[Rfam]
RNA: Ribosomal protein L20 leader
RNA sequence: AUGUGCAAGCAGGAGCACCCGCUUCUCACCUGAUCGACCGAUUGUUGGCAGGUAUACACGAUUGACUUUUACACGCAGAAAGACGCGUGUUGUCAUAUUUGCGGGUGAACCUCUCUGGUUCACCCGCUUUUGUUUUGAUCG
Numbered sequence: 001a002u003g004u005g006c007a008a009g010c011a012g013g014a015g016c017a018c019c020c021g022c023u024u025c026u027c028a029c030c031u032g033a034u035c036g037a038c039c040g041a042u043u044g045u046u047g048g049c050a051g052g053u054a055u056a057c058a059c060g061a062u063u064g065a066c067u068u069u070u071a072c073a074c075g076c077a078g079a080a081a082g083a084c085g086c087g088u089g090u091u092g093u094c095a096u097a098u099u100u101g102c103g104g105g106u107g108a109a110c111c112u113c114u115c116u117g118g119u120u121c122a123c124c125c126g127c128u129u130u131u132g133u134u135u136u137g138a139u140c141g
Stems, first nucleotide, its partner, number of pairs: 011026006028053003034048005101127011